[Rfam]
RNA sequence: AAGCAGCAUCAGUACAGCGGUGAUACCGUGACAUUAAUUGUGGUGUUAUUCGCUGGCGAUGUGGCAAGA
Numbered sequence: 001a002a003g004c005a006g007c008a009u010c011a012g013u014a015c016a017g018c019g020g021u022g023a024u025a026c027c028g029u030g031a032c033a034u035u036a037a038u039u040g041u042g043g044u045g046u047u048a049u050u051c052g053c054u055g056g057c058g059a060u061g062u063g064g065c066a067a068g069a
Stems, first nucleotide, its partner, number of pairs: 003065002006062004015055005022047006
Dot-bracket structure: ..((.((((.....(((((..((((((..............))))))...)))))...)))).))....
Shown here is a 69-nucleotide sequence from Trypanosoma theileri, a member of the family "Trypanosomatid snoRNA TB11Cs5H2". On this family, see Myslyuk et al., BMC Bioinformatics 2008: "Psiscan: a computational approach to identify H/ACA-like and AGA-like non-coding RNA in trypanosomatid genomes". Pairs were carried over by alignment from the consensus structure, which was predicted with WAR. NCBI's taxonomy places the organism under Eukaryota, Discoba, Trypanosomatida, Trypanosomatidae, Trypanosoma.